The record is a 103-nucleotide RNA from Schnuerera ultunensis, which matches "SAM riboswitch aptamer (S box leader)" in Rfam.
RNA sequence: GCCUUAUCAAGAGAGGUGGAGGGAAUGGGCCCUAUGAAACCCGGCAACCUGUAUUAUACAAAGGUGCUAAAUCCCACAGAAUUUGGAUUCUGAAAGAUGAGGU
Numbered sequence: 001g002c003c004u005u006a007u008c009a010a011g012a013g014a015g016g017u018g019g020a021g022g023g024a025a026u027g028g029g030c031c032c033u034a035u036g037a038a039a040c041c042c043g044g045c046a047a048c049c050u051g052u053a054u055u056a057u058a059c060a061a062a063g064g065u066g067c068u069a070a071a072u073c074c075c076a077c078a079g080a081a082u083u084u085g086g087a088u089u090c091u092g093a094a095a096g097a098u099g100a101g102g103u
Stems, first nucleotide, its partner, number of pairs: 001103008013042001015041003021032003026076004043068004048064002050060004072095001077092006
Dot-bracket structure: ((((((((....(.(((...(((..[[[[)))......))))((((.((((((...))))..))))))...(]]]]((((((....))))))..)))))))))